[Rfam]
RNA sequence: UGGGGGAGUCAUACGCUUUAAACUUGCAAGAAAAUCGGUUUCGAUGUCACAGCUCACCCCUAAAUUAACUGAGCCGUCUGAUGACUAUGAGGGGUCAAAGUCUGCCCUUGUAGACAGAUACGCGGCCAACAGUU
Numbered sequence: 001u002g003g004g005g006g007a008g009u010c011a012u013a014c015g016c017u018u019u020a021a022a023c024u025u026g027c028a029a030g031a032a033a034a035u036c037g038g039u040u041u042c043g044a045u046g047u048c049a050c051a052g053c054u055c056a057c058c059c060c061u062a063a064a065u066u067a068a069c070u071g072a073g074c075c076g077u078c079u080g081a082u083g084a085c086u087a088u089g090a091g092g093g094g095u096c097a098a099a100g101u102c103u104g105c106c107c108u109u110g111u112a113g114a115c116a117g118a119u120a121c122g123c124g125g126c127c128a129a130c131a132g133u134u
Stems, first nucleotide, its partner, number of pairs: 002060004015047002018044001021040004070128002073126005085113003090108004
The family of this 134-nucleotide RNA sequence from Daphnia magna is "Small Cajal body specific RNA 8". The family has 22 seed sequences and 955 matches in Rfam 15.1. On this family, see Darzacq et al., EMBO J 2002: "Cajal body-specific small nuclear RNAs: a novel class of 2'-O-methylation and pseudouridylation guide RNAs". Rfam links the family to the GO terms nucleolus, RNA processing and Cajal body. About the family: scaRNAs are a specific class of small nuclear RNAs which localise to the Cajal bodies and guide the modification of RNA polymerase II transcribed spliceosomal RNAs U1, U2, U4, U5 and U12. U92 belong to the H/ACA box class of guide RNAs as it has the predicted hairpin-hinge-hairpin-tail structure, conserved H/ACA-box motifs and is found associated with GAR1. The source organism's lineage runs through Eukaryota, Metazoa, Pancrustacea, Branchiopoda and Daphnia. By type it is a small Cajal body RNA. It scores 54 bits against the family's covariance model.